[Rfam]
The record is a 95-nucleotide RNA from Callithrix jacchus, which matches "Small nucleolar RNA SNORD116" in Rfam.
Lineage of the source: Eukaryota > Sarcopterygii > Theria > Boreoeutheria > Callithrix.
By type it is a C/D-box small nucleolar RNA.
The base pairs follow the family's consensus structure, which was predicted with PFOLD.
The family has 48 seed sequences and 3,260 matches in Rfam 15.1.
It scores 78 bits against the family's covariance model.
RNA sequence: GGAUCGACAAUGAGUCCCCAGUAAAAACAUUCCUUGGAAAAGCUGAAUAAAAUGAGUGAAAACUCGUAGCGUCGUUUUCAUUGGAACUGAGGUUC
Numbered sequence: 001g002g003a004u005c006g007a008c009a010a011u012g013a014g015u016c017c018c019c020a021g022u023a024a025a026a027a028c029a030u031u032c033c034u035u036g037g038a039a040a041a042g043c044u045g046a047a048u049a050a051a052a053u054g055a056g057u058g059a060a061a062a063c064u065c066g067u068a069g070c071g072u073c074g075u076u077u078u079c080a081u082u083g084g085a086a087c088u089g090a091g092g093u094u095c
Base pairs, nucleotide, nucleotide: 001095002094003093004092005091028058029057030056031055032054034050035049036048